[Rfam]
RNA: SAM-III riboswitch aptamer (SMK box)
RNA sequence: UAGCGUUGCAAGUUCCCGAGAGGAUUCACUUCAUUGUAAACAAAGUGGAGAUGCCUUGUAACCGAAAAUUAAUCAGGGGGAAUCAAAAUUG
Numbered sequence: 001u002a003g004c005g006u007u008g009c010a011a012g013u014u015c016c017c018g019a020g021a022g023g024a025u026u027c028a029c030u031u032c033a034u035u036g037u038a039a040a041c042a043a044a045g046u047g048g049a050g051a052u053g054c055c056u057u058g059u060a061a062c063c064g065a066a067a068a069u070u071a072a073u074c075a076g077g078g079g080g081a082a083u084c085a086a087a088a089u090u091g
Stems, first nucleotide, its partner, number of pairs: 013082005020057004025049007062077002
Dot-bracket structure: ............(((((..((((.(((((((...........)))))))....))))....((............))))))).........